[Rfam]
RNA: Bacillus-plasmid RNA
Organism: Actinobacillus indolicus
RNA sequence: AUUGUCAACGGUAAAUGUCUGACUGAAGCGACAGCGAAAGGAAUUUAAGGAGUUGACAAUUUUGCUACA
Numbered sequence: 001a002u003u004g005u006c007a008a009c010g011g012u013a014a015a016u017g018u019c020u021g022a023c024u025g026a027a028g029c030g031a032c033a034g035c036g037a038a039a040g041g042a043a044u045u046u047a048a049g050g051a052g053u054u055g056a057c058a059a060u061u062u063u064g065c066u067a068c069a
Base pairs, nucleotide, nucleotide: 001060002059003058004057005056006055007054008053009052